[Rfam]
RNA sequence: CGUUCUAUGUUGGGGUGAAGCGUUAGCGUGAGCGGACGUGGACUGCAUAGAAGUGAGAAU
Numbered sequence: 001c002g003u004u005c006u007a008u009g010u011u012g013g014g015g016u017g018a019a020g021c022g023u024u025a026g027c028g029u030g031a032g033c034g035g036a037c038g039u040g041g042a043c044u045g046c047a048u049a050g051a052a053g054u055g056a057g058a059a060u
Base pairs, nucleotide, nucleotide: 001055003052004051005050006049007048008047009046011045012044013043020039021038022037023036024035026033027032
A member of the RNA family "Bacterial large subunit ribosomal RNA" from cyanobiont of Ornithocercus magnificus, 60 nucleotides of a longer RNA. The family's consensus secondary structure is taken from published work. NCBI's taxonomy places the organism under Bacteria, Bacillati, Cyanobacteriota, Cyanophyceae, Synechococcales.